Rhizobiales sRNA Atu_At1: a 105-nucleotide RNA sequence from Limoniibacter endophyticus. For this family Rfam cites "Deep sequencing uncovers numerous small RNAs on all four replicons of the plant pathogen Agrobacterium tumefaciens" (Wilms et al., RNA Biol, 2012). The family's RNA type in Rfam is small RNA. A search with the family's covariance model found it, with a score of 62 bits. Taxonomically the source falls in Limoniibacter (Bacteria, Pseudomonadota, Hyphomicrobiales, Bartonellaceae).
Nucleotides: 105
Stems, first nucleotide, its partner, number of pairs: 006104004011023004025099003028095002033090004039067004044062001068081003
Number, partner (000 for none) and nucleotide at each position: 001000a002000g003000a004000c005000a006104g007103g008102u009101c010000g011023u012022g013021u014020c015000a016000a017000u018000c019000g020014g021013g022012c023011g024000c025099g026098a027097c028095g029094g030000u031000a032000u033090a034089g035088g036087g037000c038000a039067c040066a041065g042064g043000c044062g045000c046000g047000g048000u049000u050000u051000u052000c053000c054000c055000g056000a057000u058000u059000u060000c061000c062044c063000a064042c065041c066040u067039g068081g069080c070079c071000u072000u073000g074000g075000g076000a077000a078000u079070g080069g081068c082000a083000c084000c085000c086000a087036c088035c089034c090033u091000u092000g093000u094029c095028c096000c097027g098026u099025c100000c101009g102008g103007c104006c105000u